The record is a 130-nucleotide RNA sequence, which matches "LAGLIDADG-2 RNA" in Rfam. The base pairs follow the family's consensus structure, which is taken from published work.
[Rfam]
RNA sequence: AUAUGAGGCCCAGUUAGAGGCCUCACUAACCUGGGGAGGUUAGAUAUCCAUCCGGGUAGCGGACGCUCCGCCCCCUACUGGAGGAACGGCAUCCAGAGGCCGGGUUAUCAGCCCCGGUCGGAACCGUUUC
Numbered sequence: 001a002u003a004u005g006a007g008g009c010c011c012a013g014u015u016a017g018a019g020g021c022c023u024c025a026c027u028a029a030c031c032u033g034g035g036g037a038g039g040u041u042a043g044a045u046a047u048c049c050a051u052c053c054g055g056g057u058a059g060c061g062g063a064c065g066c067u068c069c070g071c072c073c074c075c076u077a078c079u080g081g082a083g084g085a086a087c088g089g090c091a092u093c094c095a096g097a098g099g100c101c102g103g104g105u106u107a108u109c110a111g112c113c114c115c116g117g118u119c120g121g122a123a124c125c126g127u128u129u130c
Base pairs, nucleotide, nucleotide: 005024006023007022008021009020010019026043027042028041029040030039031038032037047082048081049080050079054075055073056072059071060070061069062068083130084129085128086127087126088125089124098119099118100117101116102115103114104113